[Rfam]
RNA sequence: GCGUGUCUAGUCACCUGACGCGUUUCGUGCCUCUCUUUGGCACUUCAUCACCUCUGAUGAAGUGCCAAAGAGAGGCACGAAACGCGUCAGGUGACUAGACACGCCAU
Numbered sequence: 001g002c003g004u005g006u007c008u009a010g011u012c013a014c015c016u017g018a019c020g021c022g023u024u025u026c027g028u029g030c031c032u033c034u035c036u037u038u039g040g041c042a043c044u045u046c047a048u049c050a051c052c053u054c055u056g057a058u059g060a061a062g063u064g065c066c067a068a069a070g071a072g073a074g075g076c077a078c079g080a081a082a083c084g085c086g087u088c089a090g091g092u093g094a095c096u097a098g099a100c101a102c103g104c105c106a107u
Stems, first nucleotide, its partner, number of pairs: 003102030034071016

Overview
This 107-nucleotide RNA sequence from Xenopus laevis belongs to the Rfam family "MIR4387 microRNA precursor family". The source organism's lineage runs through Eukaryota, Gnathostomata, Amphibia, Pipidae and Xenopus. The family is grouped with related families in Rfam's "MIR4387 microRNA precursor clan".